The record is a 101-nucleotide RNA from Lactobacillus iners, which matches "Ribosomal protein L20 leader" in Rfam. Rfam links the family to the GO term regulation of gene expression. Pairs were carried over by alignment from the consensus structure, which was predicted with CMfinder. The family's RNA type in Rfam is cis-regulatory leader. This family is a putative r-protein leader autoregulatory structure found in B. subtilis and other low-GC Gram-positive bacteria. It is located in the 5' untranslated regions of mRNAs encoding initiation factor 3 followed by ribosomal proteins L35 and L20 (infC-rpmI-rplT). A Rho-independent transcription terminator structure that is probably involved in regulation is included at the 3' end. The literature on the family includes a 1994 paper in Prog Nucleic Acid Res Mol Biol by Zengel and Lindahl, "Diverse mechanisms for regulating ribosomal protein synthesis in Escherichia coli". A search with the family's covariance model found it, with a score of 63 bits. Taxonomically the source falls in Lactobacillus iners (Bacteria, Bacillati, Bacillota, Lactobacillales).

RNA sequence: GAGAACAAGAAGAAGCACCCGCUUCUCGCCUAAGUUUUAAACCUCUAGGCUGAUAUGAUCAUUUAAAAAGCGGGCUCUUUUGCCCGCUUUUAUCUUGUCCU
Numbered sequence: 001g002a003g004a005a006c007a008a009g010a011a012g013a014a015g016c017a018c019c020c021g022c023u024u025c026u027c028g029c030c031u032a033a034g035u036u037u038u039a040a041a042c043c044u045c046u047a048g049g050c051u052g053a054u055a056u057g058a059u060c061a062u063u064u065a066a067a068a069a070g071c072g073g074g075c076u077c078u079u080u081u082g083c084c085c086g087c088u089u090u091u092a093u094c095u096u097g098u099c100c101u
Base pairs, nucleotide, nucleotide: 011026012025013024014023015022016021028050029049030048034042035041069088070087071086072085073084074083075082